[Rfam]
RNA sequence: GAAAGACGCGCAUUUGUUAUCAUCAUCCCUGAAUUCAGAGAUGAAAUUUUGGCCACUCACGAGUGGCCUUUU
Numbered sequence: 001g002a003a004a005g006a007c008g009c010g011c012a013u014u015u016g017u018u019a020u021c022a023u024c025a026u027c028c029c030u031g032a033a034u035u036c037a038g039a040g041a042u043g044a045a046a047u048u049u050u051g052g053c054c055a056c057u058c059a060c061g062a063g064u065g066g067c068c069u070u071u072u
Base pairs, nucleotide, nucleotide: 024043025042026041027040029038030037031036051068052067053066054065055064056063057062
RNA: MicA sRNA
Organism: Escherichia coli